[Rfam]
RNA sequence: GAAAUUUCUUUAUGGUGAUCAAUACAAAAAAAUUAUAACCAACAUUAAACAAGUGCUUAGUGAUUGGCGACACCUUCAAAUUGCGGGAACUCCGUCCGAUUCUAGUACGUCAAUAACAGCCUCAAGUACCACUUCAGUUGAGAAAUCUUCUGAAGGAACACAGGUAAUUCCUGUUCCCAAUCGGACUUCGUCCGCGAACCUAUGGUUCGAUGGUAACAAGCUUGAGGACAUGGUGGAAAUCCGCAGCCAAGCUCCUAAGUCCGAACGAAGUUGACAAGGAUAUGGAGAAGGUUCAGAGACUUAAUGGGGGUGGGGCUGAAGGAUCUGGUCAAUCCUGAUGAAGCCUUAAGAUAAAGUCCAGCCUCUUUCGAAAGAUUGAG
Numbered sequence: 001g002a003a004a005u006u007u008c009u010u011u012a013u014g015g016u017g018a019u020c021a022a023u024a025c026a027a028a029a030a031a032a033u034u035a036u037a038a039c040c041a042a043c044a045u046u047a048a049a050c051a052a053g054u055g056c057u058u059a060g061u062g063a064u065u066g067g068c069g070a071c072a073c074c075u076u077c078a079a080a081u082u083g084c085g086g087g088a089a090c091u092c093c094g095u096c097c098g099a100u101u102c103u104a105g106u107a108c109g110u111c112a113a114u115a116a117c118a119g120c121c122u123c124a125a126g127u128a129c130c131a132c133u134u135c136a137g138u139u140g141a142g143a144a145a146u147c148u149u150c151u152g153a154a155g156g157a158a159c160a161c162a163g164g165u166a167a168u169u170c171c172u173g174u175u176c177c178c179a180a181u182c183g184g185a186c187u188u189c190g191u192c193c194g195c196g197a198a199c200c201u202a203u204g205g206u207u208c209g210a211u212g213g214u215a216a217c218a219a220g221c222u223u224g225a226g227g228a229c230a231u232g233g234u235g236g237a238a239a240u241c242c243g244c245a246g247c248c249a250a251g252c253u254c255c256u257a258a259g260u261c262c263g264a265a266c267g268a269a270g271u272u273g274a275c276a277a278g279g280a281u282a283u284g285g286a287g288a289a290g291g292u293u294c295a296g297a298g299a300c301u302u303a304a305u306g307g308g309g310g311u312g313g314g315g316c317u318g319a320a321g322g323a324u325c326u327g328g329u330c331a332a333u334c335c336u337g338a339u340g341a342a343g344c345c346u347u348a349a350g351a352u353a354a355a356g357u358c359c360a361g362c363c364u365c366u367u368u369c370g371a372a373a374g375a376u377u378g379a380g
Stems, first nucleotide, its partner, number of pairs: 004019003008015002026034002071312005077306002082245006092236005246292002252287004260280003296359001298358005314345004365378001368375002
Dot-bracket structure: ...(((.((....)).)))......((.....))....................................(((((.((...((((((....(((((.......................................................................................................................................)))))...))))))((....((((....(((...............)))...))))...))...[.[[[[[..)).))))).((((........................))))........]]]]]].....(..((....))..)..